[Rfam]
Nucleotides: 098
Stems, first nucleotide, its partner, number of pairs: 006088006022043001025041001027039002044055004065075003
Number, partner (000 for none) and nucleotide at each position: 001000u002000c003000u004000a005000u006088c007087g008086g009085a010084g011083a012000u013000a014000a015000a016000a017000a018000c019000a020000c021000a022043g023000c024000c025041c026000c027039c028038g029000u030000c031000g032000g033000g034000u035000a036000g037000u038028c039027g040000a041025g042000a043022c044055g045054u046053a047052g048000c049000u050000a051000g052047c053046u054045a055044c056000c057000a058000g059000u060000a061000a062000c063000c064000u065075g066074c067073c068000u069000c070000c071000u072000u073067g074066g075065u076000u077000g078000u079000c080000c081000c082000u083011u084010c085009u086008c087007c088006g089000c090000a091000u092000g093000g094000u095000c096000u097000u098000a